[Rfam]
Purine riboswitch aptamer: a 102-nucleotide sequence from Desulfosporosinus acididurans. Its family is annotated with purine nucleobase biosynthetic process in the Gene Ontology. NCBI's taxonomy places the organism under Bacteria, Bacillati, Bacillota, Desulfitobacteriaceae, Desulfosporosinus. Pairs were carried over by alignment from the consensus structure, which is taken from published work. For this family Rfam cites "Adenine riboswitches and gene activation by disruption of a transcription terminator" (Mandal and Breaker, Nat Struct Mol Biol, 2004).
RNA sequence: CGUAACAAAUUCAUACGAGUUCAUAUAAUAGCGGAGAUAUGGUCCGCGAGUUUCUACCAGACUGCCGUAAAUGGUCUGACUAUGAGCGAAAGUGUACCUAGG
Numbered sequence: 001c002g003u004a005a006c007a008a009a010u011u012c013a014u015a016c017g018a019g020u021u022c023a024u025a026u027a028a029u030a031g032c033g034g035a036g037a038u039a040u041g042g043u044c045c046g047c048g049a050g051u052u053u054c055u056a057c058c059a060g061a062c063u064g065c066c067g068u069a070a071a072u073g074g075u076c077u078g079a080c081u082a083u084g085a086g087c088g089a090a091a092g093u094g095u096a097c098c099u100a101g102g
Stems, first nucleotide, its partner, number of pairs: 019087007029049001031047005058078007